[Rfam]
RNA sequence: ACCACUAAGCCAUCUCUCCAGCCCAACACAAAUAUUAAAAAGAAAAAAAAAGGGGCUGGAGAGAUGGCUUAGUGGU
Numbered sequence: 001a002c003c004a005c006u007a008a009g010c011c012a013u014c015u016c017u018c019c020a021g022c023c024c025a026a027c028a029c030a031a032a033u034a035u036u037a038a039a040a041a042g043a044a045a046a047a048a049a050a051a052g053g054g055g056c057u058g059g060a061g062a063g064a065u066g067g068c069u070u071a072g073u074g075g076u
Base pairs, nucleotide, nucleotide: 002075003074004073005072006071007070008069009068010067011066012065013064014063015062016061017060018059019058020057021056022055023054024053
RNA: mir-3473 microRNA precursor family
Organism: Jaculus jaculus